[Rfam]
RNA sequence: AGAUUAUUAAUACUUAGUAAUUAAAGAGGAGCGGGGGAACCAAAUUCGGGGCUUAUCUUUAAGCAGAUCUUAAAGAAGAACAUCUCUCAGUUCUAGCCCGUCAGCUAACCUCGUCGGCAUUGGGAGGAGACCAA
Numbered sequence: 001a002g003a004u005u006a007u008u009a010a011u012a013c014u015u016a017g018u019a020a021u022u023a024a025a026g027a028g029g030a031g032c033g034g035g036g037g038a039a040c041c042a043a044a045u046u047c048g049g050g051g052c053u054u055a056u057c058u059u060u061a062a063g064c065a066g067a068u069c070u071u072a073a074a075g076a077a078g079a080a081c082a083u084c085u086c087u088c089a090g091u092u093c094u095a096g097c098c099c100g101u102c103a104g105c106u107a108a109c110c111u112c113g114u115c116g117g118c119a120u121u122g123g124g125a126g127g128a129g130a131c132c133a134a
Stems, first nucleotide, its partner, number of pairs: 011119001013117002018030001031114006041048001049099003057075006078093004
This 134-nucleotide RNA sequence from Cyanobacterium stanieri belongs to the Rfam family "c-di-AMP riboswitch aptamer (ydaO/yuaA leader)". Rfam's curators write: This family represents a conserved RNA structure found upstream of the ydaO and yuaA genes in Bacillus subtilis and related genes in other bacteria. The ydaO/yuaA element is thought to act as a genetic 'off' switch for the ydaO and yuaA genes in its native state. It is believed that the element may be triggered during osmotic shock leading to activation of ydaO, a predicted amino acid transporter gene, and members of the yuaA-yubG operon which code for KtrA and KtrB K+ transporters.